A member of the RNA family "Gag/pol translational readthrough site" from Neogale vison, 62 nucleotides long.
RNA sequence: UAGGGGGGUCGGGGUUCGGCACCCCUCCCUGAGCCCAGGGUAACCCUUAAAGUGGAGGGGCA
Numbered sequence: 001u002a003g004g005g006g007g008g009u010c011g012g013g014g015u016u017c018g019g020c021a022c023c024c025c026u027c028c029c030u031g032a033g034c035c036c037a038g039g040g041u042a043a044c045c046c047u048u049a050a051a052g053u054g055g056a057g058g059g060g061c062a
Stems, first nucleotide, its partner, number of pairs: 008041003012036004016031001018029002022060006
For this family Rfam cites "Pseudoknot-dependent read-through of retroviral gag termination codons: importance of sequences in the spacer and loop 2" (Wills et al., EMBO J, 1994). The family's consensus secondary structure is taken from published work. Taxonomically the source falls in Neogale (Eukaryota, Opisthokonta, Theria, Eutheria).